[Rfam]
RNA sequence: AUCGCCACCCGAUCGUUUCUCUGUUGGCUGGUGCGAUCCAGUGGUGAGCUGAUAGUAAACCCCAACUUAGGAAACAGGGUUGUUCUUCAUGUGGAUGACUCUGUGCCGAAAGCAUGGGAACAGCC
Numbered sequence: 001a002u003c004g005c006c007a008c009c010c011g012a013u014c015g016u017u018u019c020u021c022u023g024u025u026g027g028c029u030g031g032u033g034c035g036a037u038c039c040a041g042u043g044g045u046g047a048g049c050u051g052a053u054a055g056u057a058a059a060c061c062c063c064a065a066c067u068u069a070g071g072a073a074a075c076a077g078g079g080u081u082g083u084u085c086u087u088c089a090u091g092u093g094g095a096u097g098a099c100u101c102u103g104u105g106c107c108g109a110a111a112g113c114a115u116g117g118g119a120a121c122a123g124c125c
Stems, first nucleotide, its partner, number of pairs: 001042002004039001012032004017026001060118003064115001066112003070107002075103006083095003
A member of the RNA family "Small nucleolar RNA SNORA65" from Suricata suricatta, 125 nucleotides long. The source organism's lineage runs through Eukaryota, Opisthokonta, Eumetazoa, Tetrapoda and Suricata. The family's consensus secondary structure was predicted with RNAalifold. Rfam's curators write: U65 belongs to the H/ACA class of snoRNAs which are thought to guide the sites of modification of uridines to pseudouridines.